The record is an 89-nucleotide RNA sequence from Homo sapiens, which matches "mir-1289 microRNA precursor family" in Rfam. Gene Ontology terms of the family: miRNA-mediated post-transcriptional gene silencing and RISC complex. The source organism's lineage runs through Eukaryota, Eutheria, Haplorrhini, Homininae and Homo.
RNA sequence: CUAGUUAAAAAGGCACAUUCCUAGACCCUGCCUCAGAACUACUGAACAGAGUCACUGGGUGUGGAGUCCAGGAAUCUGCAUUUUUACCC
Numbered sequence: 001c002u003a004g005u006u007a008a009a010a011a012g013g014c015a016c017a018u019u020c021c022u023a024g025a026c027c028c029u030g031c032c033u034c035a036g037a038a039c040u041a042c043u044g045a046a047c048a049g050a051g052u053c054a055c056u057g058g059g060u061g062u063g064g065a066g067u068c069c070a071g072g073a074a075u076c077u078g079c080a081u082u083u084u085u086a087c088c089c
Stems, first nucleotide, its partner, number of pairs: 009083003013079003017075001019073004024068003028064004033059002
Dot-bracket structure: ........(((.(((.(.((((.(((.((((.((.......................)).)))).))).)))).).))).)))......